[Rfam]
RNA sequence: CGGGUUGUAGACCCUGUAGCUGCUAAGGGGCGCAGUUCAUAAUCCACCCCUUAUCCGCUACAUUGUCUGUAAUCUGGA
Numbered sequence: 001c002g003g004g005u006u007g008u009a010g011a012c013c014c015u016g017u018a019g020c021u022g023c024u025a026a027g028g029g030g031c032g033c034a035g036u037u038c039a040u041a042a043u044c045c046a047c048c049c050c051u052u053a054u055c056c057g058c059u060a061c062a063u064u065g066u067c068u069g070u071a072a073u074c075u076g077g078a
Stems, first nucleotide, its partner, number of pairs: 001076012015062006022055001024053001026051005032045001034043001
Shown here is a 78-nucleotide RNA from Danaus chrysippus, a member of the family "mir-2756 microRNA precursor family". Rfam 15.1 lists 31 matches to the family in 20 species. Its family is annotated with RISC complex and miRNA-mediated post-transcriptional gene silencing in the Gene Ontology. The source organism's lineage runs through Eukaryota, Bilateria, Allotriocarida, Aparaglossata and Anosia.